[Rfam]
RNA sequence: GAUCACGACGACGACCAUCAUCGUAGUAGGAGUGCGCACACGCGAGGCGGCCUGAGGCCGCCCGGCGAAAGCCACGUGUGCGCGAACAAGGGCCCCCGAAGGGCCCUUUUUUAUUGCCCGAA
Numbered sequence: 001g002a003u004c005a006c007g008a009c010g011a012c013g014a015c016c017a018u019c020a021u022c023g024u025a026g027u028a029g030g031a032g033u034g035c036g037c038a039c040a041c042g043c044g045a046g047g048c049g050g051c052c053u054g055a056g057g058c059c060g061c062c063c064g065g066c067g068a069a070a071g072c073c074a075c076g077u078g079u080g081c082g083c084g085a086a087c088a089a090g091g092g093c094c095c096c097c098g099a100a101g102g103g104c105c106c107u108u109u110u111u112u113a114u115u116g117c118c119c120g121a122a
Stems, first nucleotide, its partner, number of pairs: 009026001029118002032115001033084010046062005065072002089107007
RNA: Rhizobiales sRNA Atu_C8
Organism: Aurantimonas aggregata